[Rfam]
RNA: U2 spliceosomal RNA
RNA sequence: AUCGCUUCUCAGUCUUUUGAAUAAGAUCAAGCAUAGUAUCUGUUCUUAUCAGUUUAAUACCUGAUACGUCCUCUAUCUGAGGACAGUAUAUUAAAUGGAUUUUUGGAGCAGGGAGUUGGAAUACGAGCUUGCUCCAUCCACUCCAAGCAUCGGCCUAGUAUUUCAGUACUUCCAGGAAUGGUGCAUCCUCU
Numbered sequence: 001a002u003c004g005c006u007u008c009u010c011a012g013u014c015u016u017u018u019g020a021a022u023a024a025g026a027u028c029a030a031g032c033a034u035a036g037u038a039u040c041u042g043u044u045c046u047u048a049u050c051a052g053u054u055u056a057a058u059a060c061c062u063g064a065u066a067c068g069u070c071c072u073c074u075a076u077c078u079g080a081g082g083a084c085a086g087u088a089u090a091u092u093a094a095a096u097g098g099a100u101u102u103u104u105g106g107a108g109c110a111g112g113g114a115g116u117u118g119g120a121a122u123a124c125g126a127g128c129u130u131g132c133u134c135c136a137u138c139c140a141c142u143c144c145a146a147g148c149a150u151c152g153g154c155c156u157a158g159u160a161u162u163u164c165a166g167u168a169c170u171u172c173c174a175g176g177a178a179u180g181g182u183g184c185a186u187c188c189u190c191u
Stems, first nucleotide, its partner, number of pairs: 007026003011022001013020002047066006068084006112144005118138002125134003147184006154176003158172001